[Rfam]
RNA sequence: UGGGGUAUGGUGUAAUUGGCAGCACGAAGGUUUCUGGUUCCUUUAGUCUUGGUUCGAGUCCAGGUACCCCAG
Numbered sequence: 001u002g003g004g005g006u007a008u009g010g011u012g013u014a015a016u017u018g019g020c021a022g023c024a025c026g027a028a029g030g031u032u033u034c035u036g037g038u039u040c041c042u043u044u045a046g047u048c049u050u051g052g053u054u055c056g057a058g059u060c061c062a063g064g065u066a067c068c069c070c071a072g
Stems, first nucleotide, its partner, number of pairs: 001071007010025004027043004048064005